[Rfam]
This 58-nucleotide RNA sequence from Hevea brasiliensis belongs to the Rfam family "Plastid-psbA-3 3UTR RNA". A reference for the family is Richter et al. (2023), "Retrograde signaling in plants: A critical review focusing on the GUN pathway and beyond", Plant Commun. It is annotated as a cis-regulatory element. From the family's description: Plastid psbA-3 is a non-coding RNA (ncRNA) present in plastids. It was identified in inverted repeat sequences in the 3 prime untranslate region (3UTR) of photosystem II quinone-binding protein (psbA). Taxonomically the source falls in Hevea (Eukaryota, Spermatophyta, Mesangiospermae, fabids). The match comes from Rfam's covariance-model search (57 bits).
RNA sequence: AAAGGAGCAAUACCAAUCCUCUUGAUAGAACAAGAAAUUGGAUAUUGCUCUGUUUUUU
Numbered sequence: 001a002a003a004g005g006a007g008c009a010a011u012a013c014c015a016a017u018c019c020u021c022u023u024g025a026u027a028g029a030a031c032a033a034g035a036a037a038u039u040g041g042a043u044a045u046u047g048c049u050c051u052g053u054u055u056u057u058u
Base pairs, nucleotide, nucleotide: 001054002053004051005050006049007048008047009046010045011044012043013041014040020035021034022033023032024031